[Rfam]
Record summary:
The family of this 112-nucleotide RNA sequence from Colletotrichum abscissum is "U5 spliceosomal RNA". The family's RNA type in Rfam is spliceosomal small nuclear RNA. It scores 71 bits against the family's covariance model. U5 RNA is a component of both types of known spliceosome. Pairs were carried over by alignment from the consensus structure, which is taken from published work. The source organism's lineage runs through Eukaryota, Fungi, Dikarya, Glomerellaceae and Colletotrichum acutatum species complex.
RNA sequence: UAGGAGUGGGACCUCCUAUCGAACUCACCUCUUGCCUUUUACCAGAUGUGACCGUUGGAUGGCCCAACAGACUCCAUUCCACCAAUCUUUGGCACACCCUCAUCUGGAGUAC
Numbered sequence: 001u002a003g004g005a006g007u008g009g010g011a012c013c014u015c016c017u018a019u020c021g022a023a024c025u026c027a028c029c030u031c032u033u034g035c036c037u038u039u040u041a042c043c044a045g046a047u048g049u050g051a052c053c054g055u056u057g058g059a060u061g062g063c064c065c066a067a068c069a070g071a072c073u074c075c076a077u078u079c080c081a082c083c084a085a086u087c088u089u090u091g092g093c094a095c096a097c098c099c100u101c102a103u104c105u106g107g108a109g110u111a112c
Base pairs, nucleotide, nucleotide: 003075004074005073006072009065010064012062013061016058017057018055025051026050027049028048030046031045032044094110095109097107098106